RNA sequence: ACGCUACUCAGUGAUGAGCAGAGGGGAUGAGAGAAGUCAGCAGAAGUCAUAGUACUGAAAUUAUUUUUUUUUCAGGAAGGGC
Numbered sequence: 001a002c003g004c005u006a007c008u009c010a011g012u013g014a015u016g017a018g019c020a021g022a023g024g025g026g027a028u029g030a031g032a033g034a035a036g037u038c039a040g041c042a043g044a045a046g047u048c049a050u051a052g053u054a055c056u057g058a059a060a061u062u063a064u065u066u067u068u069u070u071u072u073c074a075g076g077a078a079g080g081g082c
Stems, first nucleotide, its partner, number of pairs: 004021002007018004037044002046082003055075006

The record is an 82-nucleotide RNA from Clostridium sp. 'deep sea', which matches "Group II catalytic intron D1-D4-1" in Rfam. Its family is annotated with Group II intron splicing in the Gene Ontology. The pairing is the family consensus, mapped onto this sequence. Group II introns are found in rRNA, tRNA and mRNA of organelles in fungi, plants and protists, and also in mRNA in bacteria.